Record summary
Shown here is a 126-nucleotide RNA from Tumebacillus flagellatus, a member of the family "Glycine riboswitch aptamer". Lineage of the source: Bacteria > Bacillati > Bacilli > Caryophanales > Tumebacillus.
Nucleotides: 126
Stems, first nucleotide, its partner, number of pairs: 006121003010117001012116003021051004053106003056102002060100003066093006
Number, partner (000 for none) and nucleotide at each position: 001000a002000u003000g004000a005000u006121c007120g008119c009000u010117g011000a012116c013115g014114g015000g016000a017000g018000a019000g020000u021051u022050u023049a024048c025000a026000a027000u028000g029000u030000u031000c032000g033000u034000g035000u036000u037000u038000u039000u040000u041000g042000g043000g044000a045000c046000a047000u048024g049023u050022a051021g052000c053106g054105c055104c056102g057101a058000a059000g060100g061099a062098g063000c064000a065000a066093g067092c068091g069090g070089g071088g072000g073000u074000u075000c076000u077000g078000c079000c080000c081000a082000a083000g084000a085000a086000c087000a088071c089070c090069u091068u092067g093066c094000g095000a096000a097000u098062c099061u100060c101057u102056c103000a104055g105054g106053c107000a108000u109000a110000a111000g112000g113000a114014c115013c116012g117010u118000u119008g120007c121006g122000g123000g124000a125000c126000g